The family of this 114-nucleotide RNA from Acrobeloides nanus is "Potassium channel RNA editing signal". It is annotated as a cis-regulatory element. The base pairs follow the family's consensus structure, which is taken from published work. It scores 83 bits against the family's covariance model.
RNA sequence: AUAGGCUAUGGUGACAUGACGCCGCAUACAUAUCUUGGGAGGAUAAUCGGCUCUAUAUGUGCUCUAGCGGGUGUUUUGACAAUAGCCUUACCUGUACCUGUUAUUGUUAGUAAU
Number, nucleotide and partner (000 for none) at each position: 001a114002u113003a000004g111005g000006c000007u000008a107009u106010g105011g104012u000013g102014a101015c100016a099017u000018g097019a000020c000021g095022c094023c000024g000025c000026a000027u000028a000029c000030a000031u000032a000033u000034c000035u000036u000037g077038g076039g075040a074041g000042g000043a000044u000045a000046a000047u000048c000049g063050g062051c061052u000053c000054u000055a000056u000057a000058u000059g000060u000061g051062c050063u049064c000065u000066a000067g000068c000069g000070g000071g000072u000073g000074u040075u039076u038077u037078g000079a000080c000081a000082a000083u000084a000085g000086c000087c000088u000089u000090a000091c000092c000093u000094g022095u021096a000097c018098c000099u016100g015101u014102u013103a000104u011105u010106g009107u008108u000109a000110g000111u004112a000113a002114u001